[Rfam]
RNA sequence: GGAAGCGUGGCAGAGCGGCCUAAUGCACUCGCCUUGAAAGCGAGCGGCCCGAGAGGGCCCGCGGGUUCGAAUCCCGCCGCUUCCG
Numbered sequence: 001g002g003a004a005g006c007g008u009g010g011c012a013g014a015g016c017g018g019c020c021u022a023a024u025g026c027a028c029u030c031g032c033c034u035u036g037a038a039a040g041c042g043a044g045c046g047g048c049c050c051g052a053g054a055g056g057g058c059c060c061g062c063g064g065g066u067u068c069g070a071a072u073c074c075c076g077c078c079g080c081u082u083c084c085g
Base pairs, nucleotide, nucleotide: 001084002083003082004081005080006079007078010026011025012024028044029043030042031041032040061077062076063075064074065073
RNA: tRNA